[Rfam]
RNA sequence: GCUUCAUUGAUAUUGACGGUGCUACAGUCGUUAGCGAUCCGUUAUCCUCGCAAGAAUUUGCCCGGUAGCGUAUAAGCAAAACACAAAUCUAUCCAUGCAAGCAUUUACCGCUGGUGAACCGGCGGUUUUUUUUGCCUGCCAUCCAGACAAAAGCGGCCCCUUGCGCAACGAUGCAGCAAGGGGCCGGCUCUGCGAGGGAUUAUCUCCGUUCAUUAAUCA
Numbered sequence: 001g002c003u004u005c006a007u008u009g010a011u012a013u014u015g016a017c018g019g020u021g022c023u024a025c026a027g028u029c030g031u032u033a034g035c036g037a038u039c040c041g042u043u044a045u046c047c048u049c050g051c052a053a054g055a056a057u058u059u060g061c062c063c064g065g066u067a068g069c070g071u072a073u074a075a076g077c078a079a080a081a082c083a084c085a086a087a088u089c090u091a092u093c094c095a096u097g098c099a100a101g102c103a104u105u106u107a108c109c110g111c112u113g114g115u116g117a118a119c120c121g122g123c124g125g126u127u128u129u130u131u132u133u134g135c136c137u138g139c140c141a142u143c144c145a146g147a148c149a150a151a152a153g154c155g156g157c158c159c160c161u162u163g164c165g166c167a168a169c170g171a172u173g174c175a176g177c178a179a180g181g182g183g184c185c186g187g188c189u190c191u192g193c194g195a196g197g198g199a200u201u202a203u204c205u206c207c208g209u210u211c212a213u214u215a216a217u218c219a
Base pairs, nucleotide, nucleotide: 018032019031020030021028022027040070041069042068043067044066046064050061051060052059107126108125109124110123111122112121113120114119148187155185156184157183158182159181160180161179162178163177164176165174166173167172
RNA: STnc560 Hfq binding RNA